[Rfam]
RNA sequence: CCGCGGGGACGACCCCGCCGCAGCAAGGGAGCCAGGCAGGGACGGCCCUG
Dot-bracket structure: (.((((((....)))))).)................(((((....)))))
Shown here is a 50-nucleotide RNA from Massilia sp. NR 4-1, a member of the family "Guanidine-II riboswitch aptamer (mini-ykkC)". About the family: Simpler in structure and has fewer highly conserved nucleotide positions than the ykkC-yxkD leader. Despite this each of its two stem-loop structures directly bind free guanidine. Therefore, mini-ykkC RNA motif represents a distinct class of guanidine-sensing RNAs. Its crystal structure was also determined. Pairs were carried over by alignment from the consensus structure, which is taken from published work. The organism belongs to Massilia, within Bacteria.